[Rfam]
RNA sequence: UGACAAUGACGAUUGUGAUUAGGUCUCGUUCGUCGUAAUGGCCAAAUCGGCCUUGCCGACCAUCCUGUUAUAUCACCACCCAUAUUCUGAGUCA
Numbered sequence: 001u002g003a004c005a006a007u008g009a010c011g012a013u014u015g016u017g018a019u020u021a022g023g024u025c026u027c028g029u030u031c032g033u034c035g036u037a038a039u040g041g042c043c044a045a046a047u048c049g050g051c052c053u054u055g056c057c058g059a060c061c062a063u064c065c066u067g068u069u070a071u072a073u074c075a076c077c078a079c080c081c082a083u084a085u086u087c088u089g090a091g092u093c094a
Base pairs, nucleotide, nucleotide: 001094002093003092004091044054045053
Shown here is a 94-nucleotide sequence from Trifolium pratense, a member of the family "Small nucleolar RNA Z43". Lineage of the source: Eukaryota > Viridiplantae > Streptophytina > eudicotyledons > Trifolium. It is annotated as a C/D-box small nucleolar RNA. For this family Rfam cites "The high diversity of snoRNAs in plants: identification and comparative study of 120 snoRNA genes from Oryza sativa" (Chen et al., Nucleic Acids Res, 2003).